[Rfam]
Background
L2-Alphaproteobacteria ribosomal protein leader: a 65-nucleotide RNA. Rfam's curators put it in the seed alignment.
RNA sequence: GGGCCCAAGGGCCUCAAACAUAGCGGGGCGCCCAACGCCUCGCACUGCUAAACGGAAGACAGAAA
Dot-bracket structure: (((((....)))))........(((((((.......)))))))......................